[Rfam]
RNA sequence: CUUCGUUCCGAGGGGUGCUCGCAAGAGCUGAGAUGGCGUCCAAAGCCGAACCCGUCGAACCUGAUCCGGGUCAUACCGGCGGAGGGACUGGAACGCGGCGUGCGC
Numbered sequence: 001c002u003u004c005g006u007u008c009c010g011a012g013g014g015g016u017g018c019u020c021g022c023a024a025g026a027g028c029u030g031a032g033a034u035g036g037c038g039u040c041c042a043a044a045g046c047c048g049a050a051c052c053c054g055u056c057g058a059a060c061c062u063g064a065u066c067c068g069g070g071u072c073a074u075a076c077c078g079g080c081g082g083a084g085g086g087a088c089u090g091g092a093a094c095g096c097g098g099c100g101u102g103c104g105c
Stems, first nucleotide, its partner, number of pairs: 006093005012053003016048001017028004035047003039043001060085003066079004
RNA: TPP riboswitch aptamer (THI element)